[Rfam]
A member of the RNA family "tRNA" from Fusarium verticillioides, 71 nucleotides long. The match comes from Rfam's covariance-model search (63 bits). The base pairs follow the family's consensus structure, which is taken from published work. Transfer RNA (tRNA) molecules are approximately 80 nucleotides in length. The family's RNA type in Rfam is transfer RNA.

RNA sequence: GCGGCCAUGGGUUAAUGGUAAACUGGUCGAUUUCCACUCGAUUUAUGUCAGUUCAAGUCUGACUGGCCGUA
Numbered sequence: 001g002c003g004g005c006c007a008u009g010g011g012u013u014a015a016u017g018g019u020a021a022a023c024u025g026g027u028c029g030a031u032u033u034c035c036a037c038u039c040g041a042u043u044u045a046u047g048u049c050a051g052u053u054c055a056a057g058u059c060u061g062a063c064u065g066g067c068c069g070u071a
Stems, first nucleotide, its partner, number of pairs: 001070007010024004026042005047063005
Dot-bracket structure: (((((((..((((.......)))).(((((.......)))))....(((((.......)))))))))))).